The family of this 149-nucleotide RNA from Bacteroidaceae bacterium HV4-6-C5C is "Group II catalytic intron D1-D4-7". The source organism's lineage runs through Bacteria, Pseudomonadati, Bacteroidia, Bacteroidales and Bacteroidaceae. Rfam describes the family as follows. Group II introns are found in rRNA, tRNA and mRNA of organelles in fungi, plants and protists, and also in mRNA in bacteria.
RNA sequence: CCUAUUGUUUCGUCAAUAGUAGCCUAAGGAUACGUGCAUUAUGAGUAAUUGUUUUGUACGAAGCUAUCCUGAGAAAGUAACCCUUCCGAAAGGAGAAGUCGGAACCGCGAGGGAAAGACAACGAGCAUAAGCAUUAUAUGUUCUGGGAG
Numbered sequence: 001c002c003u004a005u006u007g008u009u010u011c012g013u014c015a016a017u018a019g020u021a022g023c024c025u026a027a028g029g030a031u032a033c034g035u036g037c038a039u040u041a042u043g044a045g046u047a048a049u050u051g052u053u054u055u056g057u058a059c060g061a062a063g064c065u066a067u068c069c070u071g072a073g074a075a076a077g078u079a080a081c082c083c084u085u086c087c088g089a090a091a092g093g094a095g096a097a098g099u100c101g102g103a104a105c106c107g108c109g110a111g112g113g114a115a116a117g118a119c120a121a122c123g124a125g126c127a128u129a130a131g132c133a134u135u136a137u138a139u140g141u142u143c144u145g146g147g148a149g
Stems, first nucleotide, its partner, number of pairs: 002019006028069005033060006041052004084095004098119003105112002124142006